[Rfam]
RNA sequence: AGUCUGAUAGUAUGGUAGAAAGAAAAAUAUGAACCUUUCUACCACACUAUCUAUUAUUGAAUAAAGUUGUACUG
Numbered sequence: 001a002g003u004c005u006g007a008u009a010g011u012a013u014g015g016u017a018g019a020a021a022g023a024a025a026a027a028u029a030u031g032a033a034c035c036u037u038u039c040u041a042c043c044a045c046a047c048u049a050u051c052u053a054u055u056a057u058u059g060a061a062u063a064a065a066g067u068u069g070u071a072c073u074g
Base pairs, nucleotide, nucleotide: 006051007050008049009048010047011046013044014043015042016041017040018039019038020037021036022035023028